This 108-nucleotide sequence from Suricata suricatta belongs to the Rfam family "Y RNA". Y RNAs are components of the Ro ribonucleoprotein particle (Ro RNP), in association with Ro60 and La proteins. It is annotated as a non-coding RNA gene.
[Rfam]
RNA sequence: GACUGGUCCAAAGGUAGUGAGUUAUCUCAAUUGAUUGUUCACAGUUAUAGAUCAAACUCCUUGUUCUGCUCUUUCCCCCUUCUCACUACUGGACUUGACCAGUCUUAA
Numbered sequence: 001g002a003c004u005g006g007u008c009c010a011a012a013g014g015u016a017g018u019g020a021g022u023u024a025u026c027u028c029a030a031u032u033g034a035u036u037g038u039u040c041a042c043a044g045u046u047a048u049a050g051a052u053c054a055a056a057c058u059c060c061u062u063g064u065u066c067u068g069c070u071c072u073u074u075c076c077c078c079c080u081u082c083u084c085a086c087u088a089c090u091g092g093a094c095u096u097g098a099c100c101a102g103u104c105u106u107a108a
Stems, first nucleotide, its partner, number of pairs: 001104008010096002015091001016087006043067002